[Rfam]
RNA sequence: UUGUUGACGGGGAGCUGUGACACGCGGUCCAUACCCGGCCGCCGGGACCGCGCCGAGCCACUGGCGAGACCGACCCGCGAAAUG
Numbered sequence: 001u002u003g004u005u006g007a008c009g010g011g012g013a014g015c016u017g018u019g020a021c022a023c024g025c026g027g028u029c030c031a032u033a034c035c036c037g038g039c040c041g042c043c044g045g046g047a048c049c050g051c052g053c054c055g056a057g058c059c060a061c062u063g064g065c066g067a068g069a070c071c072g073a074c075c076c077g078c079g080a081a082a083u084g
Base pairs, nucleotide, nucleotide: 001084004081005080008077009076010075011074014058015057023052024051025050026049027048028047029046037071038070040066041065042064043063
A member of the RNA family "c-di-GMP-II-GAG riboswitch aptamer", 84 nucleotides long. Clan: c-di-GMP_II riboswitch clan. Pairs were carried over by alignment from the consensus structure, which is taken from published work.